[Rfam]
The record is a 120-nucleotide RNA from Hydrogenophaga sp. A37, which matches "SAH (S-adenosyl-L-homocysteine) riboswitch aptamer" in Rfam. Gene Ontology terms of the family: regulation of gene expression and S-adenosylhomocysteine metabolic process. NCBI's taxonomy places the organism under Bacteria, Betaproteobacteria, Burkholderiales, Comamonadaceae, Hydrogenophaga.
RNA sequence: GCUCUCAAGGAGCGCUGCAGUGCCACCCCCACACGCUGGUGUCGGGGCUGGCGUCAGGCUUGAGAGCUCGGGCGUCCACCGCCCCGCCGGCUUGCCCGGCCCCAACGGCGCUCACCAGUU
Number, nucleotide and partner (000 for none) at each position: 001g000002c066003u065004c064005u063006c062007a061008a060009g000010g000011a000012g000013c000014g000015c000016u000017g000018c000019a000020g000021u053022g052023c051024c050025a049026c000027c000028c000029c000030c000031a000032c000033a000034c000035g000036c000037u000038g000039g000040u000041g000042u000043c000044g000045g000046g000047g000048c000049u025050g024051g023052c022053g021054u000055c000056a000057g000058g000059c000060u008061u007062g006063a005064g004065a003066g002067c000068u000069c000070g000071g000072g000073c000074g000075u000076c000077c000078a000079c000080c000081g000082c000083c000084c000085c000086g000087c000088c000089g000090g000091c000092u000093u000094g000095c000096c000097c000098g000099g000100c000101c000102c000103c000104a000105a000106c000107g000108g000109c000110g000111c000112u000113c000114a000115c000116c000117a000118g000119u000120u000